The family of this 151-nucleotide RNA sequence from Albimonas pacifica is "FMN riboswitch aptamer (RFN element)". The base pairs follow the family's consensus structure, which is taken from published work.

RNA sequence: GCGAGUUCUCGGGGCGGGGUGAAAGUCCCCACCGGCGGUGAUGGCCGAAAGGCACGAGCCCGCGAGCGCCUUCCUGUCCGCAGGAAGGGUCGAGCAGAGCCCGGUGGGAUCCCGGCGCCGACGGUCACAGUCCGGAUGGAAGAGAACGGGA
Numbered sequence: 001g002c003g004a005g006u007u008c009u010c011g012g013g014g015c016g017g018g019g020u021g022a023a024a025g026u027c028c029c030c031a032c033c034g035g036c037g038g039u040g041a042u043g044g045c046c047g048a049a050a051g052g053c054a055c056g057a058g059c060c061c062g063c064g065a066g067c068g069c070c071u072u073c074c075u076g077u078c079c080g081c082a083g084g085a086a087g088g089g090u091c092g093a094g095c096a097g098a099g100c101c102c103g104g105u106g107g108g109a110u111c112c113c114g115g116c117g118c119c120g121a122c123g124g125u126c127a128c129a130g131u132c133c134g135g136a137u138g139g140a141a142g143a144g145a146a147c148g149g150g151a
Stems, first nucleotide, its partner, number of pairs: 005147006017029003031131002033120002035063004058118002066095002099116002102114003122134003
NCBI's taxonomy places the organism under Bacteria, Pseudomonadati, Pseudomonadota, Alphaproteobacteria, Albimonas.